[Rfam]
Notes
Shown here is a 198-nucleotide RNA sequence from Medicago truncatula, a member of the family "MIR2619 microRNA precursor family". Gene Ontology terms of the family: miRNA-mediated post-transcriptional gene silencing and RISC complex.

RNA sequence: AAACCGCCCCCUAAGUUUUGCCCCUGUGGCAGUUUUGGCCCCCAAGACCAAUUUUGACUCGAUCUACGCUGAUGUGGCACUCACAUCACUUAAGUGAGGUGCCACAUGUCAUUUUUUGAGGUGUCACGUUAGCGUAGACAGAGUCAAAAUUGGCCUUGGGGCCAAAACUGCCACAGGUGCAAAACUUAGGGGCGGUUU
Number, nucleotide and partner (000 for none) at each position: 001a198002a197003a000004c195005c194006g193007c192008c191009c000010c000011c000012u188013a187014a186015g185016u184017u183018u182019u181020g180021c179022c000023c177024c176025u175026g174027u173028g172029g171030c170031a169032g168033u167034u166035u165036u164037g163038g162039c161040c160041c000042c159043c158044a157045a156046g000047a000048c000049c000050a000051a000052u000053u000054u000055u000056g000057a000058c000059u000060c000061g000062a000063u000064c000065u000066a000067c000068g000069c000070u000071g000072a129073u128074g000075u126076g125077g124078c123079a122080c121081u120082c000083a000084c000085a000086u000087c000088a000089c000090u000091u000092a000093a000094g000095u000096g000097a000098g000099g000100u000101g000102c000103c000104a000105c000106a000107u000108g000109u000110c000111a000112u000113u000114u000115u000116u000117u000118g000119a000120g081121g080122u079123g078124u077125c076126a075127c000128g073129u072130u000131a000132g000133c000134g000135u000136a000137g000138a000139c000140a000141g000142a000143g000144u000145c000146a000147a000148a000149a000150u000151u000152g000153g000154c000155c000156u045157u044158g043159g042160g040161g039162c038163c037164a036165a035166a034167a033168c032169u031170g030171c029172c028173a027174c026175a025176g024177g023178u000179g021180c020181a019182a018183a017184a016185c015186u014187u013188a012189g000190g000191g008192g007193c006194g005195g004196u000197u002198u001
Notes
It scores 133 bits against the family's covariance model.